[Rfam]
RNA sequence: CUGCAUGUUGCACCCCGGGCUUUUCUGAAAUUUACAAUGACGAAAAAAGCCCCAAUGCUCGUGCUAUAUUAUGCCGUUUAGUGUUGCAGGUUCGCUUAGUUACUUGAACAGCUUAUCUGUGUCAAAAAAACGGCUACAUUU
Numbered sequence: 001c002u003g004c005a006u007g008u009u010g011c012a013c014c015c016c017g018g019g020c021u022u023u024u025c026u027g028a029a030a031u032u033u034a035c036a037a038u039g040a041c042g043a044a045a046a047a048a049g050c051c052c053c054a055a056u057g058c059u060c061g062u063g064c065u066a067u068a069u070u071a072u073g074c075c076g077u078u079u080a081g082u083g084u085u086g087c088a089g090g091u092u093c094g095c096u097u098a099g100u101u102a103c104u105u106g107a108a109c110a111g112c113u114u115a116u117c118u119g120u121g122u123c124a125a126a127a128a129a130a131c132g133g134c135u136a137c138a139u140u141u
Base pairs, nucleotide, nucleotide: 003064004063005062006061007060010058011057017052018051019050020049021048022046023045024043025042073134074133075132076131077130078129079128082124083123085121086120087119088118089117090116094112095111096110
Description: A member of the RNA family "small nucleolar RNA snoR134" from Papaver nudicaule, 141 nucleotides long. Lineage of the source: Eukaryota > Spermatophyta > Ranunculales > Papaveraceae > Papaver. The base pairs follow the family's consensus structure, which was predicted with RNAalifold. Gene Ontology terms of the family: RNA processing and nucleolus.